[Rfam]
Rfam assigns this 132-nucleotide RNA from Kutzneria viridogrisea to the family "ALIL pseudoknot". Lineage of the source: Bacteria > Bacillati > Actinomycetota > Actinomycetes > Kutzneria viridogrisea. Pairs were carried over by alignment from the consensus structure, which is taken from published work. It scores 66 bits against the family's covariance model. A reference for the family is Mazauric et al. (2008), "Apical loop-internal loop RNA pseudoknots: a new type of stimulator of -1 translational frameshifting in bacteria", J Biol Chem. Rfam 15.1 lists 2,146 matches to the family in 1,098 species.
RNA sequence: GGCAGUUUUCUUCGCGGCGGAGCUCGACCGCCCACACACCGGGUGAUCGGCUACAUCGGCCGGCACAAGGAGCUAUUCGGGGUCGAGCCGAUCUGCGCUGUCCUGCGUCAAGCGAGCGUGUCGAUCGCCCCG
Numbered sequence: 001g002g003c004a005g006u007u008u009u010c011u012u013c014g015c016g017g018c019g020g021a022g023c024u025c026g027a028c029c030g031c032c033c034a035c036a037c038a039c040c041g042g043g044u045g046a047u048c049g050g051c052u053a054c055a056u057c058g059g060c061c062g063g064c065a066c067a068a069g070g071a072g073c074u075a076u077u078c079g080g081g082g083u084c085g086a087g088c089c090g091a092u093c094u095g096c097g098c099u100g101u102c103c104u105g106c107g108u109c110a111a112g113c114g115a116g117c118g119u120g121u122c123g124a125u126c127g128c129c130c131c132g
Stems, first nucleotide, its partner, number of pairs: 016032005078132005089127002092124002095121004